Source information:
Giant, ornate, lake- and Lactobacillales-derived (GOLLD) RNA: a 438-nucleotide sequence from Lachnospiraceae bacterium NE2001. Rfam classes the family as a non-coding RNA gene. On this family, see Weinberg et al., Nature 2009: "Exceptional structured noncoding RNAs revealed by bacterial metagenome analysis". It scores 186 bits against the family's covariance model. The source organism's lineage runs through Bacteria, Bacillati, Bacillota, Lachnospirales and Lachnospiraceae.
RNA sequence: UGUAGGUGUUUAGCAUUUUGUAGUCCCAAAGAUUACGAAACUAAUCCUACUGCACAUCUACAUCCGUGAUAUGAACUGGUUUUUAGCUCAAUUGGUAAGAGCAACUGACUUAUAAUCAGUAGGUUAAGGGUUCGAGUCCCUUAAGACUUCCCAAAGCAAAAGUCAGUAGGGGUUCAGAAUGAAAAUGCGUUAAUUCCGCAGCAGAAAUGUAAUGCGGAACAAUGGAGCCCGCAAGGCGAAGUUGUUUGAUCGAACAAGUAGGCAUUAAGAGAGUCCGUACAACUCUUUUAAGGUUGAAAAGUAGGUUGAGUAGUUCUGGAUUAAAAGGUACUGCCACCUUAAAGGCACGCAUAGCACUUACAUGUCGAAAGACAUGUGGAAAUAAGUCUAACUCAUAAGGGCUUUAAAGAGUGUCGGGUUUGUCUAUAUUCUCAGGAC
Numbered sequence: 001u002g003u004a005g006g007u008g009u010u011u012a013g014c015a016u017u018u019u020g021u022a023g024u025c026c027c028a029a030a031g032a033u034u035a036c037g038a039a040a041c042u043a044a045u046c047c048u049a050c051u052g053c054a055c056a057u058c059u060a061c062a063u064c065c066g067u068g069a070u071a072u073g074a075a076c077u078g079g080u081u082u083u084u085a086g087c088u089c090a091a092u093u094g095g096u097a098a099g100a101g102c103a104a105c106u107g108a109c110u111u112a113u114a115a116u117c118a119g120u121a122g123g124u125u126a127a128g129g130g131u132u133c134g135a136g137u138c139c140c141u142u143a144a145g146a147c148u149u150c151c152c153a154a155a156g157c158a159a160a161a162g163u164c165a166g167u168a169g170g171g172g173u174u175c176a177g178a179a180u181g182a183a184a185a186u187g188c189g190u191u192a193a194u195u196c197c198g199c200a201g202c203a204g205a206a207a208u209g210u211a212a213u214g215c216g217g218a219a220c221a222a223u224g225g226a227g228c229c230c231g232c233a234a235g236g237c238g239a240a241g242u243u244g245u246u247u248g249a250u251c252g253a254a255c256a257a258g259u260a261g262g263c264a265u266u267a268a269g270a271g272a273g274u275c276c277g278u279a280c281a282a283c284u285c286u287u288u289u290a291a292g293g294u295u296g297a298a299a300a301g302u303a304g305g306u307u308g309a310g311u312a313g314u315u316c317u318g319g320a321u322u323a324a325a326a327g328g329u330a331c332u333g334c335c336a337c338c339u340u341a342a343a344g345g346c347a348c349g350c351a352u353a354g355c356a357c358u359u360a361c362a363u364g365u366c367g368a369a370a371g372a373c374a375u376g377u378g379g380a381a382a383u384a385a386g387u388c389u390a391a392c393u394c395a396u397a398a399g400g401g402c403u404u405u406a407a408a409g410a411g412u413g414u415c416g417g418g419u420u421u422g423u424c425u426a427u428a429u430u431c432u433c434a435g436g437a438c
Stems, first nucleotide, its partner, number of pairs: 001062009010044004017039009046170007156232002171322010186351005195218006201210003219245005227237003248307004259290003269287003273283002333346003354414005359378008379431003384404006423437003
Dot-bracket structure: (((((((((((((...(((((((((.....))))))))).)))).[[[[[[[.))))))))).............................................................................................{{......]]]]]]]((((((((((.....[[[[[....(((((((((....)))..))))))(((((...(((.}}..)))...)))))..((((.......(((.......(((.((.......)).)))))).............)))).....))))))))))..........(((........)))]]]]]..(((((((((((((....))))))))[[[..((((((.........)))))).....)))))........(((...]]]...))).